[Rfam]
This 35-nucleotide RNA from Microtus ochrogaster belongs to the Rfam family "Iron response element I". The match comes from Rfam's covariance-model search (36 bits).
Nucleotides: 035
Stems, first nucleotide, its partner, number of pairs: 002034003006031003010028001012027005
Number, partner (000 for none) and nucleotide at each position: 001000c002034u003033g004032u005000g006031u007030c008029u009000u010028g011000c012027u013026u014025c015024a016023a017000a018000a019000g020000u021000g022000u023016u024015u025014g026013g027012a028010c029008g030007g031006a032004a033003c034002a035000a